RNA sequence: AUUGACAAAGGCACACCUGUCGAAAGUCAGGGUCGCAAAGCCACCGGUCUAAGGGGAAACCUACGACAGCGGGGUUGCCAACA
Numbered sequence: 001a002u003u004g005a006c007a008a009a010g011g012c013a014c015a016c017c018u019g020u021c022g023a024a025a026g027u028c029a030g031g032g033u034c035g036c037a038a039a040g041c042c043a044c045c046g047g048u049c050u051a052a053g054g055g056g057a058a059a060c061c062u063a064c065g066a067c068a069g070c071g072g073g074g075u076u077g078c079c080a081a082c083a
Base pairs, nucleotide, nucleotide: 003080004079011036012035016031017030018029019028021026034069039076040075041074042073044072045071046070047067048066049065
RNA: c-di-GMP-I-GGC riboswitch aptamer